[Rfam]
RNA sequence: GCCCCCUUUAAGGCGGUCCCGAGAGGCCGGCAAGGGAGGUCGCCCGGCGUGCGCAAUCCGUGUGUGCGCCUCUCGUGUACCUCUUUGCCGGAAUCGGUGAAGAGGUUUUUUCA
Numbered sequence: 001g002c003c004c005c006c007u008u009u010a011a012g013g014c015g016g017u018c019c020c021g022a023g024a025g026g027c028c029g030g031c032a033a034g035g036g037a038g039g040u041c042g043c044c045c046g047g048c049g050u051g052c053g054c055a056a057u058c059c060g061u062g063u064g065u066g067c068g069c070c071u072c073u074c075g076u077g078u079a080c081c082u083c084u085u086u087g088c089c090g091g092a093a094u095c096g097g098u099g100a101a102g103a104g105g106u107u108u109u110u111u112c113a
Base pairs, nucleotide, nucleotide: 004036005035006034007033008032014029015028016027017026018025042074046070047069048068049067050066051065052064053063054062055061077108079106080105081104082103083102084101085100086099087098088097089096090095
Overview:
This 113-nucleotide RNA sequence from Marinithermofilum abyssi belongs to the Rfam family "PyrR binding site". A search with the family's covariance model found it, with a score of 54 bits. The source organism's lineage runs through Bacteria, Bacillota, Caryophanales, Thermoactinomycetaceae and Marinithermofilum. Pairs were carried over by alignment from the consensus structure, which is taken from published work.